RNA sequence: UUGCCUUAAACUAAUGAGUAAGGAAAACAAAGCAAGUGGUGAGAGCCGCUAGCCGUGCCACUCAUAAACCAAAAUGAGCGCAUGAAUUUAUGAAGGGGUAAUAGGCUGGCAGGGUGUUGACGCUGCUUACUUUGCAGAACUCACUCGAACGGGCCUCCCAAUCCC
Number, nucleotide and partner (000 for none) at each position: 001u000002u000003g000004c023005c022006u021007u020008a019009a000010a000011c000012u000013a000014a000015u000016g000017a000018g000019u008020a007021a006022g005023g004024a000025a000026a000027a000028c000029a000030a000031a000032g053033c052034a000035a050036g049037u048038g047039g046040u000041g000042a000043g000044a000045g000046c039047c038048g037049c036050u035051a000052g033053c032054c080055g079056u078057g000058c076059c000060a000061c000062u000063c000064a000065u000066a000067a000068a000069c000070c000071a000072a000073a000074a000075u000076g058077a000078g056079c055080g054081c000082a000083u000084g000085a000086a000087u000088u000089u000090a000091u000092g000093a000094a000095g165096g164097g163098g162099u161100a000101a000102u000103a156104g155105g154106c153107u152108g000109g150110c000111a000112g146113g000114g144115u143116g142117u000118u000119g000120a000121c000122g000123c137124u136125g135126c134127u000128u000129a000130c000131u000132u000133u000134g126135c125136a124137g123138a000139a000140c000141u000142c116143a115144c114145u000146c112147g000148a000149a000150c109151g000152g107153g106154c105155c104156u103157c000158c000159c000160a000161a099162u098163c097164c096165c095
Source information:
Shown here is a 165-nucleotide RNA from Centaurea solstitialis, a member of the family "U12 minor spliceosomal RNA". The base pairs follow the family's consensus structure. Its family is annotated with mRNA branch site recognition, U12 snRNP and pre-mRNA branch point binding in the Gene Ontology. For this family Rfam cites "The divergent U12-type spliceosome is required for pre-mRNA splicing and is essential for development in Drosophila" (Otake et al., Mol Cell, 2002).